[Rfam]
Nucleotides: 195
Stems, first nucleotide, its partner, number of pairs: 028042002045085002049079005061074005087194001089192002092189002
Number, partner (000 for none) and nucleotide at each position: 001000c002000c003000g004000g005000c006000c007000c008000g009000u010000c011000a012000u013000c014000u015000g016000g017000g018000g019000a020000g021000u022000a023000g024000c025000c026000g027000c028042c029041c030000g031000c032000a033000a034000c035000c036000u037000u038000g039000c040000g041029g042028g043000a044000c045085c046084u047000g048000c049079c050078g051077u052076c053075a054000a055000c056000a057000c058000a059000c060000u061074u062073g063072g064071c065070u066000g067000a068000g069000a070065a071064g072063c073062c074061a075053u076052g077051g078050c079049g080000c081000g082000c083000a084046g085045g086000a087194g088000g089192a090191c091000g092189u093188u094000u095000u096000u097000g098000a099000a100000c101000g102000u103000c104000c105000g106000g107000g108000c109000g110000a111000g112000a113000c114000c115000a116000a117000u118000g119000a120000c121000g122000c123000a124000u125000g126000g127000c128000g129000g130000u131000u132000u133000c134000g135000c136000u137000c138000g139000g140000c141000c142000g143000g144000g145000c146000g147000g148000a149000u150000u151000c152000c153000g154000u155000g156000u157000g158000c159000g160000u161000c162000g163000u164000u165000g166000c167000g168000u169000u170000u171000c172000g173000u174000g175000u176000c177000c178000g179000c180000c181000c182000g183000g184000c185000c186000c187000c188093g189092g190000a191090g192089u193000a194087u195000c
Rfam assigns this 195-nucleotide sequence from Novosphingobium guangzhouense to the family "Manganese Mn2+ riboswitch aptamer (yybP-ykoY)". Rfam describes the family as follows. This RNA was originally discovered in E. coli during a large scale screen and was named SraF. The family was later found to exist upstream of related families of protein genes in many bacteria, including the the yybP and ykoK genes in B. subtilis. The specific functions of these proteins are unknown, but this structured RNA element may be involved in their genetic regulation as a riboswitch.